Record summary: This 92-nucleotide RNA from Actinoallomurus bryophytorum belongs to the Rfam family "Selenocysteine transfer RNA". Taxonomically the source falls in Actinoallomurus (Bacteria, Bacillati, Actinomycetota, Streptosporangiales). It scores 76 bits against the family's covariance model.
[Rfam]
RNA sequence: GGAGGCGUGAGGGUGCCUGGUGGCCCUCCUGGUCUUCAAAACCAUUGGACGGCGCUCGGCGUCGUCGGCGGGUUCGAUUCCCGUACGCCUCC
Numbered sequence: 001g002g003a004g005g006c007g008u009g010a011g012g013g014u015g016c017c018u019g020g021u022g023g024c025c026c027u028c029c030u031g032g033u034c035u036u037c038a039a040a041a042c043c044a045u046u047g048g049a050c051g052g053c054g055c056u057c058g059g060c061g062u063c064g065u066c067g068g069c070g071g072g073u074u075c076g077a078u079u080c081c082c083g084u085a086c087g088c089c090u091c092c
Stems, first nucleotide, its partner, number of pairs: 001092009012027002015024003030044004048066005069083004